[Rfam]
RNA: Plastid-psbA-1 3UTR RNA
Nucleotides: 119
Stems, first nucleotide, its partner, number of pairs: 010025005068119005074113006081106003085102005
Number, partner (000 for none) and nucleotide at each position: 001000u002000g003000u004000c005000g006000a007000a008000g009000c010025u011024c012023c013022a014021u015000c016000u017000u018000c019000a020000a021014a022013u023012g024011g025010a026000u027000a028000a029000g030000g031000u032000u033000g034000c035000g036000u037000a038000a039000u040000a041000u042000u043000c044000u045000u046000a047000c048000u049000u050000u051000u052000u053000c054000g055000a056000a057000u058000a059000a060000u061000u062000c063000a064000a065000g066000g067000a068119a069118c070117a071116g072115a073000a074113c075112a076111a077110u078109g079108c080000c081106a082105a083104a084000u085102u086101u087100c088099u089098u090000g091000u092000u093000u094000u095000a096000u097000c098089a099088a100087g101086a102085g103000g104083u105082u106081u107000g108079g109078u110077a111076u112075u113074g114000c115072u116071c117070u118069g119068u